[Rfam]
The family of this 194-nucleotide RNA sequence from Williamsia sp. 1138 is "Actinobacteria sRNA Ms_IGR-5".
RNA sequence: ACACGAGGAAGGAGGUGGUCUGAAAUUGAUUUCUAGGACACGUGAGGUGACCACCAGCUAACCGGCCGUUCUGUGGAAUGUUCUGUGCCUCAGGCGGUAUGGAGCUAAUCCACGGUGGUCACCGGACCCCGCACCUCGACCUCGUCCAAGGUCGGUCAACCCGCUUCUUGCGGGUGGUGCGGGGUCUGUUCUCG
Numbered sequence: 001a002c003a004c005g006a007g008g009a010a011g012g013a014g015g016u017g018g019u020c021u022g023a024a025a026u027u028g029a030u031u032u033c034u035a036g037g038a039c040a041c042g043u044g045a046g047g048u049g050a051c052c053a054c055c056a057g058c059u060a061a062c063c064g065g066c067c068g069u070u071c072u073g074u075g076g077a078a079u080g081u082u083c084u085g086u087g088c089c090u091c092a093g094g095c096g097g098u099a100u101g102g103a104g105c106u107a108a109u110c111c112a113c114g115g116u117g118g119u120c121a122c123c124g125g126a127c128c129c130c131g132c133a134c135c136u137c138g139a140c141c142u143c144g145u146c147c148a149a150g151g152u153c154g155g156u157c158a159a160c161c162c163g164c165u166u167c168u169u170g171c172g173g174g175u176g177g178u179g180c181g182g183g184g185u186c187u188g189u190u191c192u193c194g
Base pairs, nucleotide, nucleotide: 014055015054016053017052018051019050056106057105058104059103065098066097067096068095071093072092073091123188124187125186126185127184128183129182130181131180132179133178134177135176137154138153139152140151141150142149
NCBI's taxonomy places the organism under Bacteria, Bacillati, Actinomycetes, Mycobacteriales, Williamsia.